The family of this 169-nucleotide RNA from Panicum virgatum is "MIR2118 microRNA precursor family".

RNA sequence: GCAUGGAAGUGGAAGAAAGAGAUGCCCUAAGAGCAAUAGGAGUGGGAACAUGAAGGAAUGUUGUGCCCUAAUUUCUUCUCUAGCAUCGGCGAUGGAUAUUUGGCUUAAAGCAUUCCUGAUGCCUCCCAUUCCUGUUGUUCUUAGGCCCUCCUUCCUCUUCCUUUUGCUA
Numbered sequence: 001g002c003a004u005g006g007a008a009g010u011g012g013a014a015g016a017a018a019g020a021g022a023u024g025c026c027c028u029a030a031g032a033g034c035a036a037u038a039g040g041a042g043u044g045g046g047a048a049c050a051u052g053a054a055g056g057a058a059u060g061u062u063g064u065g066c067c068c069u070a071a072u073u074u075c076u077u078c079u080c081u082a083g084c085a086u087c088g089g090c091g092a093u094g095g096a097u098a099u100u101u102g103g104c105u106u107a108a109a110g111c112a113u114u115c116c117u118g119a120u121g122c123c124u125c126c127c128a129u130u131c132c133u134g135u136u137g138u139u140c141u142u143a144g145g146c147c148c149u150c151c152u153u154c155c156u157c158u159u160c161c162u163u164u165u166g167c168u169a
Base pairs, nucleotide, nucleotide: 009160011158012157013156015154016153017152021150022149026145027144028143029142030141031140032139033138034137035136037134038133039132040131041130042129043128044127045126046125047124049121050120051119053117055116056115057114058113059112060111061110

The organism belongs to Panicum sect. Hiantes, within Eukaryota.